[Rfam]
RNA: Mammalian CPEB3 ribozyme
Organism: Alligator sinensis
RNA sequence: AGAGGUCAUGAGUUUGAGGCCGUAGCAGAAGUGCUCAUGGCAUGGCCCUAUUGGAGUCCAAUGAAUCUGUGAAUUCUGUU
Numbered sequence: 001a002g003a004g005g006u007c008a009u010g011a012g013u014u015u016g017a018g019g020c021c022g023u024a025g026c027a028g029a030a031g032u033g034c035u036c037a038u039g040g041c042a043u044g045g046c047c048c049u050a051u052u053g054g055a056g057u058c059c060a061a062u063g064a065a066u067c068u069g070u071g072a073a074u075u076c077u078g079u080u
Base pairs, nucleotide, nucleotide: 016048018047019046020045021044024080025079026078027077028076029075030074031043032042033041052069053068054067055066057064058063